[Rfam]
RNA sequence: UCGAGAGGCCGUGAUUGGAACCGGUGUUUCCUGGAUAGGAUGGCCACGGACCGUACUCGGGCGCAGCCCCCGGCCGGUCCGUCCUAUUUGAGACAGCAGCCGCUGCAACCCCAGGGAG
Numbered sequence: 001u002c003g004a005g006a007g008g009c010c011g012u013g014a015u016u017g018g019a020a021c022c023g024g025u026g027u028u029u030c031c032u033g034g035a036u037a038g039g040a041u042g043g044c045c046a047c048g049g050a051c052c053g054u055a056c057u058c059g060g061g062c063g064c065a066g067c068c069c070c071c072g073g074c075c076g077g078u079c080c081g082u083c084c085u086a087u088u089u090g091a092g093a094c095a096g097c098a099g100c101c102g103c104u105g106c107a108a109c110c111c112c113a114g115g116g117a118g
Stems, first nucleotide, its partner, number of pairs: 048080006056073001058072004094105004
RNA: Streptomyces-metK RNA